[Rfam]
RNA: Mason-Pfizer monkey virus packaging signal
RNA sequence: UGGCGCCCGAACAGGGACCUGGAAACGAGGGACUCCGUGAGGAAGAGGACGCCAAAGGACGGUCGACCGCUAAUAAAGACAAAAGGAGUCAAAUUCUUCCGAUCACCGCGGGAACCUGCCGUGUCAGAAUCGAAGGUAAGUGACGCGUCCGAAAUGGGACAAGAAUUAAGCCAACAUCAAAUAUAUGUAGGACAAUUAAAAGAGGCUUUAAAGAUAUGAGGAGUAAAGGUUAAAGGUAAUGAUUUGUUUAAAUUUUUGAUUUUGUAAAGAUACUUGCCCUU
Numbered sequence: 001u002g003g004c005g006c007c008c009g010a011a012c013a014g015g016g017a018c019c020u021g022g023a024a025a026c027g028a029g030g031g032a033c034u035c036c037g038u039g040a041g042g043a044a045g046a047g048g049a050c051g052c053c054a055a056a057g058g059a060c061g062g063u064c065g066a067c068c069g070c071u072a073a074u075a076a077a078g079a080c081a082a083a084a085g086g087a088g089u090c091a092a093a094u095u096c097u098u099c100c101g102a103u104c105a106c107c108g109c110g111g112g113a114a115c116c117u118g119c120c121g122u123g124u125c126a127g128a129a130u131c132g133a134a135g136g137u138a139a140g141u142g143a144c145g146c147g148u149c150c151g152a153a154a155u156g157g158g159a160c161a162a163g164a165a166u167u168a169a170g171c172c173a174a175c176a177u178c179a180a181a182u183a184u185a186u187g188u189a190g191g192a193c194a195a196u197u198a199a200a201a202g203a204g205g206c207u208u209u210a211a212a213g214a215u216a217u218g219a220g221g222a223g224u225a226a227a228g229g230u231u232a233a234a235g236g237u238a239a240u241g242a243u244u245u246g247u248u249u250a251a252a253u254u255u256u257u258g259a260u261u262u263u264g265u266a267a268a269g270a271u272a273c274u275u276g277c278c279c280u281u
Base pairs, nucleotide, nucleotide: 006031007030008029036048038046096136097135098133099132103129104127107123108122109121110120111119145160148158149157150156151155167210168209169208170206171205172204217258218257219256221255222254223253224252227245228244229243230242231241232240266281267280269278271276